[Rfam]
RNA: Enterobacterial sRNA STnc180
RNA sequence: GCUUUUAAUACACCGCAGCAAUAACAGCUUGAGUUAUCUCAACACAAAUAUGAAAUAUUGGUCCUGGAUGGGCGCGUUUUCUCUGUCGAUGCUCUUCUGGGCCGAACUCCUCUGGAUCAUUACUCACUGAUCCUUGACCCCGCUGCGGCGGGGUUGUCAUUUGC
Numbered sequence: 001g002c003u004u005u006u007a008a009u010a011c012a013c014c015g016c017a018g019c020a021a022u023a024a025c026a027g028c029u030u031g032a033g034u035u036a037u038c039u040c041a042a043c044a045c046a047a048a049u050a051u052g053a054a055a056u057a058u059u060g061g062u063c064c065u066g067g068a069u070g071g072g073c074g075c076g077u078u079u080u081c082u083c084u085g086u087c088g089a090u091g092c093u094c095u096u097c098u099g100g101g102c103c104g105a106a107c108u109c110c111u112c113u114g115g116a117u118c119a120u121u122a123c124u125c126a127c128u129g130a131u132c133c134u135u136g137a138c139c140c141c142g143c144u145g146c147g148g149c150g151g152g153g154u155u156g157u158c159a160u161u162u163g164c
Stems, first nucleotide, its partner, number of pairs: 010037001012035001014033001018028002061102003066092001068090002071087004104118002107115002136155008